The family of this 35-nucleotide RNA sequence from Chitinophaga tropicalis is "DUF805b RNA".
RNA sequence: AAGGAGGCCGCUGAAAAUCCUGAAUAGAGUAAGCA
Numbered sequence: 001a002a003g004g005a006g007g008c009c010g011c012u013g014a015a016a017a018u019c020c021u022g023a024a025u026a027g028a029g030u031a032a033g034c035a
Stems, first nucleotide, its partner, number of pairs: 002021004010034003
Dot-bracket structure: .((((....[[[.....))))..........]]].

The family's consensus secondary structure is taken from published work.
Lineage of the source: Bacteria > Pseudomonadati > Chitinophagia > Chitinophagales > Chitinophaga.
By type it is a cis-regulatory element.